[Rfam]
The family of this 113-nucleotide RNA sequence from Amborella trichopoda is "MIR168 microRNA precursor family". A search with the family's covariance model found it, with a score of 81 bits. Lineage of the source: Eukaryota > Streptophyta > Embryophyta > Tracheophyta > Amborella.

RNA sequence: CUUACUGCUUACUCUAGCUCGCUUGGUGCAGGUCGGGAACCCUUCGCACUUUAAUACCCUCACUAGCAGAGGGUUCCCGCCUUGCAUCAACUGAAUUGGAGACUACAGUAAAG
Numbered sequence: 001c002u003u004a005c006u007g008c009u010u011a012c013u014c015u016a017g018c019u020c021g022c023u024u025g026g027u028g029c030a031g032g033u034c035g036g037g038a039a040c041c042c043u044u045c046g047c048a049c050u051u052u053a054a055u056a057c058c059c060u061c062a063c064u065a066g067c068a069g070a071g072g073g074u075u076c077c078c079g080c081c082u083u084g085c086a087u088c089a090a091c092u093g094a095a096u097u098g099g100a101g102a103c104u105a106c107a108g109u110a111a112a113g
Base pairs, nucleotide, nucleotide: 013100014099017096019094020093023090024089025088026087027086028085029084030083031082032081034079035078036077037076038075040073041072042071043070044069